Rfam assigns this 147-nucleotide sequence from Neomonachus schauinslandi to the family "ODC internal ribosome entry site (IRES)". The match comes from Rfam's covariance-model search (107 bits). The organism belongs to Neomonachus, within Eukaryota. The family's consensus secondary structure was predicted with mfold.
RNA sequence: AUUUCCACUGCUGCACCUGAGGGCACACGCAUCUUCAGCGGGACUUGGAAUUCCAGAGAAUUGCCUUUGUGAGAAACUGGCAAUAAUUUCUUUAAAUUCCAUCUCUUAGUUUUCCAUGUAAGUAUUCAUGGUUGUUGUUAAGAAUUA
Number, nucleotide and partner (000 for none) at each position: 001a000002u000003u000004u000005c000006c080007a000008c000009u000010g077011c000012u075013g000014c073015a000016c071017c000018u069019g068020a067021g066022g065023g064024c063025a062026c000027a061028c000029g000030c000031a000032u000033c000034u000035u000036c000037a000038g000039c000040g000041g054042g053043a052044c000045u000046u000047g000048g000049a000050a000051u000052u043053c042054c041055a000056g000057a000058g000059a000060a000061u027062u025063g024064c023065c022066u021067u020068u019069g018070u000071g016072a000073g014074a000075a012076a000077c010078u000079g000080g006081c000082a000083a000084u000085a146086a145087u000088u144089u143090c142091u141092u140093u000094a000095a000096a000097u000098u000099c131100c130101a000102u000103c000104u000105c000106u000107u000108a000109g000110u000111u000112u000113u000114c000115c000116a000117u000118g000119u000120a000121a000122g000123u000124a000125u000126u000127c000128a000129u000130g100131g099132u000133u000134g000135u000136u000137g000138u000139u000140a092141a091142g090143a089144a088145u086146u085147a000